[Rfam]
RNA sequence: CGUACGGGACGACCCGUGAUGUCGUAUGCCUCCGCGGGACGACCCGC
Numbered sequence: 001c002g003u004a005c006g007g008g009a010c011g012a013c014c015c016g017u018g019a020u021g022u023c024g025u026a027u028g029c030c031u032c033c034g035c036g037g038g039a040c041g042a043c044c045c046g047c
Stems, first nucleotide, its partner, number of pairs: 001018002005016004034047005
RNA: Guanidine-II riboswitch aptamer (mini-ykkC)
Organism: Salinisphaera japonica